[Rfam]
RNA sequence: AUAUAAUAAAUCCAUUAAUAUAUAGUGCGUGGCUGUUCACAGUCAGAGCACUAUAUCUAUUAGAUGGGUAAACAGACAUGAGCAAAACAGGGCGAUAGCCCGAUUUGCGAAUGGAUGUUGUGAUUUCGGGAGUUCGCAGAACGGAGAAAUCACGAUUAUAU
Numbered sequence: 001a002u003a004u005a006a007u008a009a010a011u012c013c014a015u016u017a018a019u020a021u022a023u024a025g026u027g028c029g030u031g032g033c034u035g036u037u038c039a040c041a042g043u044c045a046g047a048g049c050a051c052u053a054u055a056u057c058u059a060u061u062a063g064a065u066g067g068g069u070a071a072a073c074a075g076a077c078a079u080g081a082g083c084a085a086a087a088c089a090g091g092g093c094g095a096u097a098g099c100c101c102g103a104u105u106u107g108c109g110a111a112u113g114g115a116u117g118u119u120g121u122g123a124u125u126u127c128g129g130g131a132g133u134u135c136g137c138a139g140a141a142c143g144g145a146g147a148a149a150u151c152a153c154g155a156u157u158a159u160a161u
Base pairs, nucleotide, nucleotide: 001161002160003159004158005157006156007155011068012067013066014065017061018060019059020058021055022054023053024052025051026050027049028048030046031044032043033042034041035040072118073117074116077113078112079111082108083107084106085105090101091100092099093098121152122151123150124149125148126147127146132142133141134140135139
RNA: Clostridiales-1 RNA